RNA: Glm Y RNA activator of glmS mRNA
Organism: Enterobacterales bacterium CwR94
Nucleotides: 162
Stems, first nucleotide, its partner, number of pairs: 005070002007067006019055006027049002078157007087138005100126005140150003
Number, partner (000 for none) and nucleotide at each position: 001000a002000g003000u004000g005070g006069c007067u008066c009065a010064u011063u012062c013000a014000c015000c016000c017000c018000u019055u020054u021053a022052u023051g024050a025000u026000u027049g028048c029000c030000c031000u032000g033000c034000g035000c036000a037000a038000g039000c040000g041000g042000a043000c044000a045000a046000g047000a048028g049027c050024u051023c052022a053021u054020a055019a056000a057000a058000u059000u060000u061000c062012g063011a064010a065009u066008g067007a068000c069006g070005c071000a072000c073000a074000a075000a076000a077000c078157g079156g080155u081154g082153c083152c084151u085000g086000c087138c088137g089136u090135c091134c092000a093000c094000c095000c096000c097000a098000c099000c100126g101125a102124u103123a104122a105000u106000c107000g108000u109000u110000c111000g112000c113000u114000u115000u116000g117000c118000g119000a120000c121000g122104u123103u124102a125101u126100c127000a128000a129000g130000c131000a132000u133000c134091g135090g136089a137088c138087g139000u140150a141149a142148c143000g144000u145000u146000g147000a148142g149141u150140u151084a152083g153082g154081c155080a156079c157078c158000a159000c160000c161000u162000a